Metazoan signal recognition particle RNA: a 276-nucleotide RNA sequence from Tribonema minus. It is annotated as a non-coding RNA gene. About the family: The signal recognition particle (SRP) is a universally conserved ribonucleoprotein. It is involved in the co-translational targeting of proteins to membranes. A search with the family's covariance model found it, with a score of 106 bits.
[Rfam]
RNA sequence: GCCGGGUGGGGUCACGACCACCUGUUACGACUAGUGUCGGGUAGGAUUUGGUCACUGGCCCCCUCCGUCGGCGUGAAAGCGCCCUGUCGAGGGUGCCGUCCACCUCUGUGCGUGCGCCUUGGAGCACACUUCCCCGGAAGGGGGGGCGAGCCCCAGGUUAGACGAUCGAGAUGUUCAGGCUGGCAACAGAGCAGACUAAAUUGAUCUCGUACGCAGGAGAGGGGAUUGCGGUGUCUGAAAGGUGUGUCGAUGGGAUAAGCCAGAAGCCAAGUCCUU
Numbered sequence: 001g002c003c004g005g006g007u008g009g010g011g012u013c014a015c016g017a018c019c020a021c022c023u024g025u026u027a028c029g030a031c032u033a034g035u036g037u038c039g040g041g042u043a044g045g046a047u048u049u050g051g052u053c054a055c056u057g058g059c060c061c062c063c064u065c066c067g068u069c070g071g072c073g074u075g076a077a078a079g080c081g082c083c084c085u086g087u088c089g090a091g092g093g094u095g096c097c098g099u100c101c102a103c104c105u106c107u108g109u110g111c112g113u114g115c116g117c118c119u120u121g122g123a124g125c126a127c128a129c130u131u132c133c134c135c136g137g138a139a140g141g142g143g144g145g146g147c148g149a150g151c152c153c154c155a156g157g158u159u160a161g162a163c164g165a166u167c168g169a170g171a172u173g174u175u176c177a178g179g180c181u182g183g184c185a186a187c188a189g190a191g192c193a194g195a196c197u198a199a200a201u202u203g204a205u206c207u208c209g210u211a212c213g214c215a216g217g218a219g220a221g222g223g224g225a226u227u228g229c230g231g232u233g234u235c236u237g238a239a240a241g242g243u244g245u246g247u248c249g250a251u252g253g254g255a256u257a258a259g260c261c262a263g264a265a266g267c268c269a270a271g272u273c274c275u276u
Stems, first nucleotide, its partner, number of pairs: 001042003004023006028039003044274009055263005065253008078245001081243003085239001087237001091236006098229002100224002103222005109215008119156004124151002127148001129146007157163002164206006173196003180189003
Gene Ontology terms of the family: SRP-dependent cotranslational protein targeting to membrane, signal sequence recognition and signal recognition particle, endoplasmic reticulum targeting. The base pairs follow the family's consensus structure, which is taken from published work. On this family, see Wild et al., Curr Opin Struct Biol 2002: "Towards the structure of the mammalian signal recognition particle". Lineage of the source: Eukaryota > Stramenopiles > Xanthophyceae > Tribonematales > Tribonema.